Shown here is a 130-nucleotide RNA sequence from Streptomyces genisteinicus, a member of the family "Streptomyces RNA 5676". For this family Rfam cites "Deep sequencing-based identification of small non-coding RNAs in Streptomyces coelicolor" (Vockenhuber et al., RNA Biol, 2011). It is annotated as a small RNA.
RNA sequence: AGAUGAGAGAAACACCCGCGCCGCGGGAGACCGCGAGCGGUGCCGGACCGGAGCAUCCCCAGCCCCGACCCGGCCGUGCCAUCGCGCACACCGCUGGAGCCUCACGCUCCGGAACUCCUCACCGAUCGGA
Numbered sequence: 001a002g003a004u005g006a007g008a009g010a011a012a013c014a015c016c017c018g019c020g021c022c023g024c025g026g027g028a029g030a031c032c033g034c035g036a037g038c039g040g041u042g043c044c045g046g047a048c049c050g051g052a053g054c055a056u057c058c059c060c061a062g063c064c065c066c067g068a069c070c071c072g073g074c075c076g077u078g079c080c081a082u083c084g085c086g087c088a089c090a091c092c093g094c095u096g097g098a099g100c101c102u103c104a105c106g107c108u109c110c111g112g113a114a115c116u117c118c119u120c121a122c123c124g125a126u127c128g129g130a
Base pairs, nucleotide, nucleotide: 004121005120006119007118009117010116016040017039018038019037022035023034024033025032026031042074043073044072045071046070049067050066051065053063054062076089077088078087079086094112095111096110097109098108099107100106122129123128
About the family: Identified by deep sequencing of transcriptome at the end of exponential growth phase. Appears longer on northern blot than sequencing transcript. This indicates processing step. Streptomyces specific.